[Rfam]
RNA sequence: UCCAUGGUGAAGUGGAAUCUGAAGGAAGCCCUAGACAAAUCCUCGGUCUGAGGUACACGAAUCACAUUUGAGGUUCUUACUUUCAGGACGAACCUGCAGAACAAGGUAAAGUCCCAAAUAUCCCCGGAUGAGGUAGGAAUAAAUGUGGCAGAUAUAUGAGGAGAAAGUGGAUGAA
Dot-bracket structure: (((((......))))).............(.(..((...(((((((((((...........((((((.....(((.(((((((..((((..((((........))))...))))...............))))))).)))..)))))))))))...))))))....))..).)..

Shown here is a 175-nucleotide RNA from Metabacillus sediminilitoris, a member of the family "Group II catalytic intron D1-D4-3". NCBI's taxonomy places the organism under Bacteria, Bacillati, Caryophanales, Bacillaceae, Metabacillus. It scores 136 bits against the family's covariance model.